[Rfam]
RNA: Acido-Lenti-1 RNA
RNA sequence: CCCAGCGCUAGCGCGCUGGGCUAACCUCGCGACGCGCCUCCGGCGCU
Numbered sequence: 001c002c003c004a005g006c007g008c009u010a011g012c013g014c015g016c017u018g019g020g021c022u023a024a025c026c027u028c029g030c031g032a033c034g035c036g037c038c039u040c041c042g043g044c045g046c047u
Base pairs, nucleotide, nucleotide: 001020002019003018004017005016006015007014008013034046035045036044037043038042